[Rfam]
RNA sequence: UGCUGAUCACCGCCGGCAGGAGCGGGGGAACCACCAUCGGGCGGCCGAGGCCGUCCUUGGGGCUAAGUAGCGUCGCAGCAUCACGGGGAUUGUUGCGCCGAGACCGGGUAUCUCCACCCGAGCCCGACAGCUCACCUCGUAGGCGCAGGAGAGGUACUUC
Numbered sequence: 001u002g003c004u005g006a007u008c009a010c011c012g013c014c015g016g017c018a019g020g021a022g023c024g025g026g027g028g029a030a031c032c033a034c035c036a037u038c039g040g041g042c043g044g045c046c047g048a049g050g051c052c053g054u055c056c057u058u059g060g061g062g063c064u065a066a067g068u069a070g071c072g073u074c075g076c077a078g079c080a081u082c083a084c085g086g087g088g089a090u091u092g093u094u095g096c097g098c099c100g101a102g103a104c105c106g107g108g109u110a111u112c113u114c115c116a117c118c119c120g121a122g123c124c125c126g127a128c129a130g131c132u133c134a135c136c137u138c139g140u141a142g143g144c145g146c147a148g149g150a151g152a153g154g155u156a157c158u159u160c
Stems, first nucleotide, its partner, number of pairs: 001145004010019001022140006032059002060125003068103001106119004
Overview:
Shown here is a 160-nucleotide RNA from Flexivirga aerilata, a member of the family "c-di-AMP riboswitch aptamer (ydaO/yuaA leader)". The pairing is the family consensus, mapped onto this sequence. Gene Ontology terms of the family: cyclic-di-AMP binding and regulation of gene expression. Taxonomically the source falls in Flexivirga (Bacteria, Bacillati, Actinomycetota, Dermacoccaceae).